[Rfam]
Shown here is a 108-nucleotide sequence from Caballeronia glathei, a member of the family "Burkholderia sRNA Bp1_Cand612_SIPHT". A search with the family's covariance model found it, with a score of 81 bits. The source organism's lineage runs through Bacteria, Pseudomonadati, Burkholderiales, Burkholderiaceae and Caballeronia. By type it is a small RNA. A reference for the family is Khoo et al. (2012), "Computational discovery and RT-PCR validation of novel Burkholderia conserved and Burkholderia pseudomallei unique sRNAs", BMC Genomics.
RNA sequence: AAAAAAAAUGGGCGCAACGCCCAUCUUCUUGAAACCGAGGUCGCAUCUGGGCGGCAAAACGAAACUGCGGAAACUGCGUGCCCAGCGACUUUGUGAUUUUAGCUAUUU
Numbered sequence: 001a002a003a004a005a006a007a008a009u010g011g012g013c014g015c016a017a018c019g020c021c022c023a024u025c026u027u028c029u030u031g032a033a034a035c036c037g038a039g040g041u042c043g044c045a046u047c048u049g050g051g052c053g054g055c056a057a058a059a060c061g062a063a064a065c066u067g068c069g070g071a072a073a074c075u076g077c078g079u080g081c082c083c084a085g086c087g088a089c090u091u092u093g094u095g096a097u098u099u100u101a102g103c104u105a106u107u108u
Base pairs, nucleotide, nucleotide: 008024009023010022011021012020013019014018038099039098040097041096042095043094044093049091050090051089054086055085